[Rfam]
RNA sequence: UAUGUCAAGCAGAAACAGCCGUUUCUCACCUUACAGCACUGCUAGUUAGGUUUAAAUAUUACUUGAAUUUUUUUUGGUGAUAUAUAGAGGACGGCUUAUGCCGUCCUUUUUAUAUUUU
Number, nucleotide and partner (000 for none) at each position: 001u000002a000003u000004g000005u000006c000007a000008a000009g000010c000011a026012g025013a024014a023015a022016c021017a000018g000019c000020c000021g016022u015023u014024u013025c012026u011027c000028a051029c050030c049031u000032u000033a046034c045035a000036g042037c041038a000039c000040u000041g037042c036043u000044a000045g034046u033047u000048a000049g030050g029051u028052u000053u000054a000055a000056a000057u000058a000059u000060u000061a000062c000063u000064u000065g000066a000067a000068u000069u000070u000071u000072u000073u000074u000075u000076g000077g000078u000079g000080a000081u000082a000083u000084a000085u000086a000087g000088a000089g000090g105091a104092c103093g102094g101095c100096u000097u000098a000099u000100g095101c094102c093103g092104u091105c090106c000107u000108u000109u000110u000111u000112a000113u000114a000115u000116u000117u000118u000
RNA: Ribosomal protein L20 leader
Organism: Clostridium amylolyticum